[Rfam]
Nucleotides: 083
Base pairs, nucleotide, nucleotide: 001027002026003025004023005022006021007020008019010018011017052079053078054077055075056074057073058072059071061070062069
Number, partner (000 for none) and nucleotide at each position: 001027u002026g003025g004023a005022c006021a007020g008019u009000a010018u011017c012000c013000u014000u015000g016000u017011g018010a019008a020007c021006u022005g023004u024000a025003c026002c027001g028000a029000a030000a031000g032000c033000a034000g035000c036000u037000u038000a039000a040000u041000c042000a043000a044000u045000c046000g047000g048000g049000a050000a051000u052079c053078u054077g055075c056074c057073u058072u059071g060000a061070u062069c063000g064000g065000u066000a067000a068000a069062g070061a071059c072058a073057g074056g075055g076000a077054c078053g079052g080000a081000a082000g083000a
Rfam assigns this 83-nucleotide sequence from Ureibacillus terrenus to the family "pan motif".